mir-9223 microRNA precursor family: a 74-nucleotide RNA from Myotis myotis.

RNA sequence: GGUGGUUCUUGGGUGACACACCCCGGAAUCAGGCUCCCUCCUCUCUGGUUCUGGGUGAGUUACCUGAGAACCCA
Numbered sequence: 001g002g003u004g005g006u007u008c009u010u011g012g013g014u015g016a017c018a019c020a021c022c023c024c025g026g027a028a029u030c031a032g033g034c035u036c037c038c039u040c041c042u043c044u045c046u047g048g049u050u051c052u053g054g055g056u057g058a059g060u061u062a063c064c065u066g067a068g069a070a071c072c073c074a
Stems, first nucleotide, its partner, number of pairs: 002073001005071013019057005025052009
It scores 80 bits against the family's covariance model. Rfam links the family to the GO terms miRNA-mediated post-transcriptional gene silencing and RISC complex. Taxonomically the source falls in Myotis (Eukaryota, Euteleostomi, Sarcopterygii, Tetrapoda).